[Rfam]
RNA sequence: GAUUCACUCUGCACCCAGCUGCAGCCCCAAGUGGGUGCUUUUCUGUAUUCCAUAGAAAUAUCCCCAAGUGUUGUGACCACCUUAACCUGUCAAGGGCGAUGCAACCUUCUGGGACACAGGG
Numbered sequence: 001g002a003u004u005c006a007c008u009c010u011g012c013a014c015c016c017a018g019c020u021g022c023a024g025c026c027c028c029a030a031g032u033g034g035g036u037g038c039u040u041u042u043c044u045g046u047a048u049u050c051c052a053u054a055g056a057a058a059u060a061u062c063c064c065c066a067a068g069u070g071u072u073g074u075g076a077c078c079a080c081c082u083u084a085a086c087c088u089g090u091c092a093a094g095g096g097c098g099a100u101g102c103a104a105c106c107u108u109c110u111g112g113g114a115c116a117c118a119g120g121g
Base pairs, nucleotide, nucleotide: 002046003045011038012037013036014035015034016033017032020029021028062112063111066108067107068106070105071104072103073102074101075100078098080096081095082094

Shown here is a 121-nucleotide RNA from Ailuropoda melanoleuca, a member of the family "Small nucleolar RNA SNORA77". The organism belongs to Ailuropoda, within Eukaryota. Pairs were carried over by alignment from the consensus structure, which was predicted with RNAalifold. Rfam classes the family as an H/ACA-box small nucleolar RNA. The literature on the family includes a 2006 paper in RNA by Schattner et al., "A computational screen for mammalian pseudouridylation guide H/ACA RNAs". ACA63 (SNORA77) is a member of the H/ACA class of snoRNAs that guide the sites of modification of uridines to pseudouridines. This snoRNA was identified by computational screening and its expression in mouse experimentally verified by Northern blot and primer extension analysis. ACA63 is proposed to guide the pseudouridylation of 18S rRNA U814.